[Rfam]
RNA sequence: GGUCCAUUAGCUCAGUUGGCAGAGCACCUGACUUUUAAUCAGGGUGUCCCGCGUUCGAGUCGCGGAUGGAUCA
Numbered sequence: 001g002g003u004c005c006a007u008u009a010g011c012u013c014a015g016u017u018g019g020c021a022g023a024g025c026a027c028c029u030g031a032c033u034u035u036u037a038a039u040c041a042g043g044g045u046g047u048c049c050c051g052c053g054u055u056c057g058a059g060u061c062g063c064g065g066a067u068g069g070a071u072c073a
Stems, first nucleotide, its partner, number of pairs: 001072007010025004027043005049065005

Shown here is a 73-nucleotide RNA from Succiniclasticum ruminis, a member of the family "tRNA". The family's consensus secondary structure is taken from published work.